[Rfam]
RNA sequence: CUCCCCGAAAUAGUUUUAGGACUAGCCUCAAGUUAGAUACCUGGAGGUAAAGCACUGAAUAGCCUAGCGGCCGAGAGGUUAGCGAAGCUUAUCAAACUCAGAAUGCCAGAGUAUUGAUGCUUGGGAGUCAGACAGUGUCAGAUAAAUGUCAUUGUCAAAAGGGAAACAGCCCAGAUCUACAGCUAAGGUCCCAAAGUCAGGUUAAGUGGAAAACGAUGUGAAGAUACGUAGACAACCAGGAUGUUGGCUCAGAAGCAGCCACACAUUCAAAGAGUGCGUAAUAGCUCACUGGUCGAGCGUCUUUGCGCGGAGAAUUUAACGGGGCUAAACCUGACACCGAAGCUUAGGCAAUACAGCAAUGUAUUGGGUAGGGGAGCGUUGUAUACGCGGUGAAACAGUAGCGCAAGCGGCUGUGGAGUGUAUAGAAGUGAGAAU
Numbered sequence: 001c002u003c004c005c006c007g008a009a010a011u012a013g014u015u016u017u018a019g020g021a022c023u024a025g026c027c028u029c030a031a032g033u034u035a036g037a038u039a040c041c042u043g044g045a046g047g048u049a050a051a052g053c054a055c056u057g058a059a060u061a062g063c064c065u066a067g068c069g070g071c072c073g074a075g076a077g078g079u080u081a082g083c084g085a086a087g088c089u090u091a092u093c094a095a096a097c098u099c100a101g102a103a104u105g106c107c108a109g110a111g112u113a114u115u116g117a118u119g120c121u122u123g124g125g126a127g128u129c130a131g132a133c134a135g136u137g138u139c140a141g142a143u144a145a146a147u148g149u150c151a152u153u154g155u156c157a158a159a160a161g162g163g164a165a166a167c168a169g170c171c172c173a174g175a176u177c178u179a180c181a182g183c184u185a186a187g188g189u190c191c192c193a194a195a196g197u198c199a200g201g202u203u204a205a206g207u208g209g210a211a212a213a214c215g216a217u218g219u220g221a222a223g224a225u226a227c228g229u230a231g232a233c234a235a236c237c238a239g240g241a242u243g244u245u246g247g248c249u250c251a252g253a254a255g256c257a258g259c260c261a262c263a264c265a266u267u268c269a270a271a272g273a274g275u276g277c278g279u280a281a282u283a284g285c286u287c288a289c290u291g292g293u294c295g296a297g298c299g300u301c302u303u304u305g306c307g308c309g310g311a312g313a314a315u316u317u318a319a320c321g322g323g324g325c326u327a328a329a330c331c332u333g334a335c336a337c338c339g340a341a342g343c344u345u346a347g348g349c350a351a352u353a354c355a356g357c358a359a360u361g362u363a364u365u366g367g368g369u370a371g372g373g374g375a376g377c378g379u380u381g382u383a384u385a386c387g388c389g390g391u392g393a394a395a396c397a398g399u400a401g402c403g404c405a406a407g408c409g410g411c412u413g414u415g416g417a418g419u420g421u422a423u424a425g426a427a428g429u430g431a432g433a434a435u
Base pairs, nucleotide, nucleotide: 001376002375003374004373005372006371011024012023013022014021015020026127027125028124029123030122031121032120033119035118036115037114038113039112040111041109042108043107044106051098052097056094057093058092061089062088063087067083068082069080070079071078072077131156132155133154134153135152136151137150139148140147161172162171163170176348177347178346179345181344182343183342187338188337189336196335197334198333199332200331201330202329214309215308218306219305220304221303222302223301224300225299227297235293236292237291238290239289241266242265243264246260247259248258267271272287276285277284349366350365351364352363353362354361355360377430379427380426382424383423384422385421386420387419388418395414396413397412398411399410401408402407
RNA: Bacterial large subunit ribosomal RNA, nucleotides 851 to 1285